RNA sequence: CUCUGGAGAAUCCCGGGCAAACCGGGUGCCGAAGGGGCAAGAUGCGAGUCGCGUCGCCCGCCGGUUCGUCGGCGUCAGCGAGGGCGGCGAAGCUGCUUCGUGACGAGGCGGCUGGGGCGUAAGGCCUCGCGCAUCGAAACUCUCAGGCCAAAGGACAGAG
Numbered sequence: 001c002u003c004u005g006g007a008g009a010a011u012c013c014c015g016g017g018c019a020a021a022c023c024g025g026g027u028g029c030c031g032a033a034g035g036g037g038c039a040a041g042a043u044g045c046g047a048g049u050c051g052c053g054u055c056g057c058c059c060g061c062c063g064g065u066u067c068g069u070c071g072g073c074g075u076c077a078g079c080g081a082g083g084g085c086g087g088c089g090a091a092g093c094u095g096c097u098u099c100g101u102g103a104c105g106a107g108g109c110g111g112c113u114g115g116g117g118c119g120u121a122a123g124g125c126c127u128c129g130c131g132c133a134u135c136g137a138a139a140c141u142c143u144c145a146g147g148c149c150a151a152a153g154g155a156c157a158g159a160g
Stems, first nucleotide, its partner, number of pairs: 001160005012026004028148003031144002035142003041135006